[Rfam]
RNA sequence: GAAGUGUUAAAGCAUGUCUCCCGAAAGUGGACACCGGUUUCGGGAAAAAGACAUGCGCCAAAUCAAGAACCUACAGUGUGUCGCGUGCAUCCUUUUCACGCGACACGCUGUAGGCUGUCCCUUGUGUGUCCAGAUGGGCGCGCCGCGUUCCAGGU
Number, nucleotide and partner (000 for none) at each position: 001g000002a000003a000004g000005u000006g000007u000008u000009a000010a000011a000012g056013c055014a054015u053016g052017u051018c050019u049020c000021c044022c043023g000024a000025a040026a039027g038028u037029g000030g035031a000032c000033a000034c000035c030036g000037g028038u027039u026040u025041c000042g000043g022044g021045a000046a000047a000048a000049a019050g018051a017052c016053a015054u014055g013056c012057g000058c000059c000060a000061a149062a148063u000064c147065a000066a000067g000068a116069a000070c114071c113072u112073a111074c110075a109076g108077u107078g106079u105080g104081u103082c102083g101084c100085g000086u098087g097088c000089a000090u000091c000092c000093u000094u000095u000096u000097c087098a086099c000100g084101c083102g082103a081104c080105a079106c078107g077108c076109u075110g074111u073112a072113g071114g070115c000116u068117g000118u000119c138120c137121c136122u000123u134124g000125u132126g131127u000128g000129u000130c000131c126132a125133g000134a123135u000136g121137g120138g119139c000140g000141c000142g000143c000144c000145g000146c000147g064148u062149u061150c000151c000152a000153g000154g000155u000

Record summary: Brucella sRNA CI27: a 155-nucleotide RNA from Mesorhizobium sp. L-8-10. Rfam classes the family as a small RNA. Pairs were carried over by alignment from the consensus structure, which was predicted with RNAfold. The organism belongs to Mesorhizobium, within Bacteria. Rfam 15.1 lists 50 matches to the family in 21 species.